RNA: Small nucleolar RNA snR191
Organism: Puccinia coronata
RNA sequence: UAAGGGUACUUCUUGUAAGGGUACUUCUGUACCCUUAUAAGGGUACUUCUUAUAAGGGUACCAAAGUACCCUUAUAAGGGUACCCGUACCCUUAUAAGGGUACCCGUACCCUUAUAAGGGUACCGAAGUACCCUUAUAAGGGUACCCGUACCCUUAUAAGGGUACUGAAGUACCCUUAUAAGGGUACGGGUACCCUUAUAAGGGUACUUCAGUACCCUUAUAAGGGUACGGGUACCCUUAUAAGGGUACUUCGGUACC
Numbered sequence: 001u002a003a004g005g006g007u008a009c010u011u012c013u014u015g016u017a018a019g020g021g022u023a024c025u026u027c028u029g030u031a032c033c034c035u036u037a038u039a040a041g042g043g044u045a046c047u048u049c050u051u052a053u054a055a056g057g058g059u060a061c062c063a064a065a066g067u068a069c070c071c072u073u074a075u076a077a078g079g080g081u082a083c084c085c086g087u088a089c090c091c092u093u094a095u096a097a098g099g100g101u102a103c104c105c106g107u108a109c110c111c112u113u114a115u116a117a118g119g120g121u122a123c124c125g126a127a128g129u130a131c132c133c134u135u136a137u138a139a140g141g142g143u144a145c146c147c148g149u150a151c152c153c154u155u156a157u158a159a160g161g162g163u164a165c166u167g168a169a170g171u172a173c174c175c176u177u178a179u180a181a182g183g184g185u186a187c188g189g190g191u192a193c194c195c196u197u198a199u200a201a202g203g204g205u206a207c208u209u210c211a212g213u214a215c216c217c218u219u220a221u222a223a224g225g226g227u228a229c230g231g232g233u234a235c236c237c238u239u240a241u242a243a244g245g246g247u248a249c250u251u252c253g254g255u256a257c258c
Stems, first nucleotide, its partner, number of pairs: 003072005020062007028054001030045005080165006088121008097112006125151001130143005167252004172247004186238001188237004193231002196228001199220007